The family of this 113-nucleotide sequence from Xylanimonas ulmi is "SAM (S-adenosyl methionine) riboswitch aptamer". Rfam links the family to the GO terms regulation of gene expression and S-adenosylmethionine metabolic process.
[Rfam]
RNA sequence: GGUCAUGAGCUCCGACGUCAAGCCCCGGCUCGUCGGACGGCAACCCCCGCGUGGGUGGGUGCCCCGGGUGAGGACCAGGUGGCGUCGUGUUCGCGGCGCACAACGCGCGAGCC
Numbered sequence: 001g002g003u004c005a006u007g008a009g010c011u012c013c014g015a016c017g018u019c020a021a022g023c024c025c026c027g028g029c030u031c032g033u034c035g036g037a038c039g040g041c042a043a044c045c046c047c048c049g050c051g052u053g054g055g056u057g058g059g060u061g062c063c064c065c066g067g068g069u070g071a072g073g074a075c076c077a078g079g080u081g082g083c084g085u086c087g088u089g090u091u092c093g094c095g096g097c098g099c100a101c102a103a104c105g106c107g108c109g110a111g112c113c
Stems, first nucleotide, its partner, number of pairs: 001076004009038001011037006021030002039063003044059003047054002079101003083098006

Overview
Lineage of the source: Bacteria > Bacillati > Actinomycetota > Micrococcales > Xylanimonas. The family has 40 seed sequences and 2,360 matches in Rfam 15.1.